[Rfam]
RNA sequence: AAGUUGUAUGUGAAAAUUGGAGAGAACUAAAUAGAUUGGCAUUAUUUGGUACAUUCUGUUUAGUUUUCUCCAAUAUUUCAUGUCCAACAU
Numbered sequence: 001a002a003g004u005u006g007u008a009u010g011u012g013a014a015a016a017u018u019g020g021a022g023a024g025a026a027c028u029a030a031a032u033a034g035a036u037u038g039g040c041a042u043u044a045u046u047u048g049g050u051a052c053a054u055u056c057u058g059u060u061u062a063g064u065u066u067u068c069u070c071c072a073a074u075a076u077u078u079c080a081u082g083u084c085c086a087a088c089a090u
Base pairs, nucleotide, nucleotide: 004087005086006085008083011080012079013078014077016074017073018072019071020070021069023067024066025065026064027063028062029061030060032058033057
Shown here is a 90-nucleotide RNA from Quercus lobata, a member of the family "MIR2275 microRNA precursor family". NCBI's taxonomy places the organism under Eukaryota, Viridiplantae, Embryophyta, Euphyllophyta, Quercus. Pairs were carried over by alignment from the consensus structure, which was predicted with RNAalifold.